[Rfam]
RNA sequence: CCACGAAUAUUCUUGUUCUGAUUUUGUAAUAAUCAGGGGAGGCUAAACAUUCGCUGUAUUAAGACCAUGCAUGUGUCCCGAGAUCUAGUUCUUACCCUAGGUCUGGUUUUAUCAAUGCUCAUGAUAAAC
Numbered sequence: 001c002c003a004c005g006a007a008u009a010u011u012c013u014u015g016u017u018c019u020g021a022u023u024u025u026g027u028a029a030u031a032a033u034c035a036g037g038g039g040a041g042g043c044u045a046a047a048c049a050u051u052c053g054c055u056g057u058a059u060u061a062a063g064a065c066c067a068u069g070c071a072u073g074u075g076u077c078c079c080g081a082g083a084u085c086u087a088g089u090u091c092u093u094a095c096c097c098u099a100g101g102u103c104u105g106g107u108u109u110u111a112u113c114a115a116u117g118c119u120c121a122u123g124a125u126a127a128a129c
Base pairs, nucleotide, nucleotide: 004053005052016038017037018036019035020034021033022032023031064122067119069118070117079106081104082103083102084101085100086099087098088097
The record is a 129-nucleotide sequence from Lynx pardinus, which matches "Small nucleolar RNA SNORA72" in Rfam. About the family: U72 is a member of the H/ACA class of snoRNAs. The snoRNA gene is located in intron 4 of the ribosomal L30 protein gene in human, mouse and chicken. The family has 29 seed sequences and 1,541 matches in Rfam 15.1. NCBI's taxonomy places the organism under Eukaryota, Deuterostomia, Laurasiatheria, Felinae, Lynx.